[Rfam]
The record is a 157-nucleotide sequence from Pogona vitticeps, which matches "U1 spliceosomal RNA" in Rfam. The source organism's lineage runs through Eukaryota, Opisthokonta, Sauropsida, Episquamata and Pogona. The family's RNA type in Rfam is spliceosomal small nuclear RNA. For this family Rfam cites "The uRNA database" (Zwieb, Nucleic Acids Res, 1997). U1 is a small nuclear RNA (snRNA) component of the spliceosome (involved in pre-mRNA splicing). Its 5' end forms complementary base pairs with the 5' splice junction, thus defining the 5' donor site of an intron. There are significant differences in sequence and secondary structure between metazoan and yeast U1 snRNAs, the latter being much longer (568 nucleotides as compared to 164 nucleotides in human). Pairs were carried over by alignment from the consensus structure, which is taken from published work.

RNA sequence: ACUCAUAUCUUGCAGGGGAAAUAUACCACGGUCAUGAAAGUGGUUUUUCCAGAGCAAGGCCCAUCUACUGCACUUUGGGUGUGCUGAGCCCUAUGAUUUCCCCAAAUGUGGGGAACUCAACUGCGUAAUUUGUGUUAAUGGGGGAUUAAUUUCCCUG
Number, nucleotide and partner (000 for none) at each position: 001a000002c000003u000004c000005a000006u000007a000008u000009c000010u000011u000012g124013c123014a122015g121016g050017g049018g048019a047020a046021a045022u000023a000024u000025a044026c043027c042028a041029c040030g000031g000032u000033c000034a000035u000036g000037a000038a000039a000040g029041u028042g027043g026044u025045u021046u020047u019048u018049c017050c016051a092052g091053a000054g089055c000056a000057a000058g085059g084060c083061c000062c081063a080064u079065c078066u077067a000068c000069u000070g000071c000072a000073c000074u000075u000076u000077g066078g065079g064080u063081g062082u000083g060084c059085u058086g000087a000088g000089c054090c000091c052092u051093a000094u119095g118096a117097u115098u114099u113100c000101c111102c110103c000104a000105a000106a000107u000108g000109u000110g102111g101112g000113g099114a098115a097116c000117u096118c095119a094120a000121c015122u014123g013124c012125g000126u000127a000128a000129u000130u000131u000132g000133u000134g000135u000136u000137a000138a000139u000140g000141g000142g000143g000144g000145a000146u000147u000148a000149a156150u000151u000152u000153c000154c000155c000156u149157g000